[Rfam]
Notes: Shown here is a 108-nucleotide RNA sequence from Plutella xylostella, a member of the family "mir-8517 microRNA precursor family". Taxonomically the source falls in Plutella (Eukaryota, Opisthokonta, Altocrustacea, Endopterygota). Pairs were carried over by alignment from the consensus structure, which was predicted with RNAalifold.
Nucleotides: 108
Base pairs, nucleotide, nucleotide: 001107002106003105005103006102011097012096013095014094015093016092017091018090019089020088021087022086023085024084025083027081028080029069030068031067032066033065049059050058051057052056
Number, partner (000 for none) and nucleotide at each position: 001107u002106u003105a004000a005103u006102g007000g008000a009000a010000g011097c012096u013095u014094u015093a016092g017091c018090u019089a020088u021087u022086g023085a024084a025083c026000u027081g028080u029069u030068c031067u032066g033065u034000c035000a036000c037000u038000c039000u040000c041000u042000g043000a044000c045000a046000g047000a048000g049059a050058a051057c052056a053000a054000u055000u056052u057051g058050u059049u060000c061000u062000u063000c064000a065033a066032c067031a068030g069029a070000g071000a072000g073000u074000g075000a076000c077000a078000a079000a080028a081027c082000u083025g084024u085023u086022c087021a088020a089019u090018a091017g092016c093015u094014a095013a096012a097011g098000c099000g100000u101000c102006c103005a104000c105003u106002a107001a108000c